[Rfam]
Nucleotides: 068
Base pairs, nucleotide, nucleotide: 006064007063008062009061010059011058012057013056015054016053018052019051020050021049022048023047024046025045026044027043028042029041
Number, partner (000 for none) and nucleotide at each position: 001000u002000u003000g004000u005000a006064u007063u008062c009061u010059a011058c012057a013056g014000u015054g016053c017000a018052u019051g020050u021049g022048u023047c024046u025045c026044c027043a028042g029041c030000g031000u032000g033000u034000u035000u036000a037000a038000g039000c040000a041029g042028c043027u044026g045025g046024a047023g048022a049021u050020a051019c052018g053016g054015c055000c056013c057012u058011g059010u060000u061009g062008g063007a064006a065000u066000a067000a068000c

A member of the RNA family "mir-139 microRNA precursor family" from Ophiophagus hannah, 68 nucleotides long. The literature on the family includes a 2008 paper in Genome Res by Murchison et al., "Conservation of small RNA pathways in platypus". Its family is annotated with miRNA-mediated post-transcriptional gene silencing and RISC complex in the Gene Ontology. Lineage of the source: Eukaryota > Vertebrata > Dipnotetrapodomorpha > Bifurcata > Ophiophagus. The family has 29 seed sequences and 598 matches in Rfam 15.1.